[Rfam]
RNA sequence: GCAUCCCAGUCACGAACUUCUCGCACGGCAGGAGCGGGGGACCCAGGUAAGUCGCCGGACCGGUCGCUGCGACCGGGACGGCUUGGGGUUAAGUCACGUCCGUGAGGGCGUGGCCGGGCACCUCCCAGCCCGAACCCGACAGCUCACCUCGCAGGCGACGGAGAGGAACCUC
Numbered sequence: 001g002c003a004u005c006c007c008a009g010u011c012a013c014g015a016a017c018u019u020c021u022c023g024c025a026c027g028g029c030a031g032g033a034g035c036g037g038g039g040g041a042c043c044c045a046g047g048u049a050a051g052u053c054g055c056c057g058g059a060c061c062g063g064u065c066g067c068u069g070c071g072a073c074c075g076g077g078a079c080g081g082c083u084u085g086g087g088g089u090u091a092a093g094u095c096a097c098g099u100c101c102g103u104g105a106g107g108g109c110g111u112g113g114c115c116g117g118g119c120a121c122c123u124c125c126c127a128g129c130c131c132g133a134a135c136c137c138g139a140c141a142g143c144u145c146a147c148c149u150c151g152c153a154g155g156c157g158a159c160g161g162a163g164a165g166g167a168a169c170c171u172c
Stems, first nucleotide, its partner, number of pairs: 004033003034152006044085005086137003094113006116131004

Rfam assigns this 172-nucleotide RNA from Streptomyces sp. 3213.3 to the family "c-di-AMP riboswitch aptamer (ydaO/yuaA leader)". Rfam's curators write: This family represents a conserved RNA structure found upstream of the ydaO and yuaA genes in Bacillus subtilis and related genes in other bacteria.